[Rfam]
RNA sequence: UUACAUCGAAGAGGUUGCAGAUGAUAUUAGUAAUUGUUGUGAGAUGAUAAGGCAUCGAUGAUCAACAGUGAAAGGAGAUUUUGCCGAAGUUUAACUUAGCCUGAGUAAGUUGAACUGGGGUCUGGCUGAAAAAGUCAGAAACUGUCGCAAUCAGAUUUGCGGAGCGCUAUCGAGUUUG
Numbered sequence: 001u002u003a004c005a006u007c008g009a010a011g012a013g014g015u016u017g018c019a020g021a022u023g024a025u026a027u028u029a030g031u032a033a034u035u036g037u038u039g040u041g042a043g044a045u046g047a048u049a050a051g052g053c054a055u056c057g058a059u060g061a062u063c064a065a066c067a068g069u070g071a072a073a074g075g076a077g078a079u080u081u082u083g084c085c086g087a088a089g090u091u092u093a094a095c096u097u098a099g100c101c102u103g104a105g106u107a108a109g110u111u112g113a114a115c116u117g118g119g120g121u122c123u124g125g126c127u128g129a130a131a132a133a134g135u136c137a138g139a140a141a142c143u144g145u146c147g148c149a150a151u152c153a154g155a156u157u158u159g160c161g162g163a164g165c166g167c168u169a170u171c172g173a174g175u176u177u178g
Stems, first nucleotide, its partner, number of pairs: 006173004010168002017084005025076001033069007088116011117143002121139007145162006
Overview: This 178-nucleotide RNA from Liquorilactobacillus ghanensis belongs to the Rfam family "Lysine riboswitch aptamer". Gene Ontology term of the family: lysine biosynthetic process. The family's consensus secondary structure is taken from published work.